[Rfam]
This 124-nucleotide RNA from Bucco capensis belongs to the Rfam family "Small nucleolar RNA ACA64". A reference for the family is Schattner et al. (2006), "A computational screen for mammalian pseudouridylation guide H/ACA RNAs", RNA. Rfam classes the family as an H/ACA-box small nucleolar RNA. NCBI's taxonomy places the organism under Eukaryota, Teleostomi, Archosauria, Theropoda, Bucco. Rfam links the family to the GO terms nucleolus and RNA processing.
RNA sequence: ACAGUCUGCAAAUCCCUUGUGGUCUCCUGUGGCCCCUGGUGCCAUAACUGUGCCCACAGCAGAGGGAGCAUUAAACUCAUUGCCCACGGGAAAGUGUGGGGAGUGAAACCCAGAGCCUGCACUA
Numbered sequence: 001a002c003a004g005u006c007u008g009c010a011a012a013u014c015c016c017u018u019g020u021g022g023u024c025u026c027c028u029g030u031g032g033c034c035c036c037u038g039g040u041g042c043c044a045u046a047a048c049u050g051u052g053c054c055c056a057c058a059g060c061a062g063a064g065g066g067a068g069c070a071u072u073a074a075a076c077u078c079a080u081u082g083c084c085c086a087c088g089g090g091a092a093a094g095u096g097u098g099g100g101g102a103g104u105g106a107a108a109c110c111c112a113g114a115g116c117c118u119g120c121a122c123u124a
Stems, first nucleotide, its partner, number of pairs: 006050001008048001010045001014041001016039001021034004068116002071113002077106005085098003
Dot-bracket structure: .....(.(.(...(.(....((((......))))....).)...)..).).................((.((....(((((...(((........)))...))))).....)).))........